[Rfam]
RNA sequence: GGAGGUGUGUGUCAGUGAUGGCACAGCUGAACAUUGAUCGCUUAACGCUCUUUAGCUGAUCUGCUCAGUAAAGUGCAGUCACGUGGUCGAUCCAGCAACCAAGGGACUCGCUGAUGCCUUGUCGCUCGGCGUCAUCCACUGGUUUCUUGAACGUCCGCCAUUUCCAAAUUUUGGGGGCUCGGGUGAUUUUAAAUUUAAGACACCUCCAUUGAUUGGCACUACAGUUCGGUAGUCUGCCAUUUUUUUUA
Numbered sequence: 001g002g003a004g005g006u007g008u009g010u011g012u013c014a015g016u017g018a019u020g021g022c023a024c025a026g027c028u029g030a031a032c033a034u035u036g037a038u039c040g041c042u043u044a045a046c047g048c049u050c051u052u053u054a055g056c057u058g059a060u061c062u063g064c065u066c067a068g069u070a071a072a073g074u075g076c077a078g079u080c081a082c083g084u085g086g087u088c089g090a091u092c093c094a095g096c097a098a099c100c101a102a103g104g105g106a107c108u109c110g111c112u113g114a115u116g117c118c119u120u121g122u123c124g125c126u127c128g129g130c131g132u133c134a135u136c137c138a139c140u141g142g143u144u145u146c147u148u149g150a151a152c153g154u155c156c157g158c159c160a161u162u163u164c165c166a167a168a169u170u171u172u173g174g175g176g177g178c179u180c181g182g183g184u185g186a187u188u189u190u191a192a193a194u195u196u197a198a199g200a201c202a203c204c205u206c207c208a209u210u211g212a213u214u215g216g217c218a219c220u221a222c223a224g225u226u227c228g229g230u231a232g233u234c235u236g237c238c239a240u241u242u243u244u245u246u247u248a
Base pairs, nucleotide, nucleotide: 001207002206003205004204005203006202007201008200015082016081017080018079019078027068028067029066032063033062036061037060038059039058040056041055042054215238216237217236218233219232220231221230222229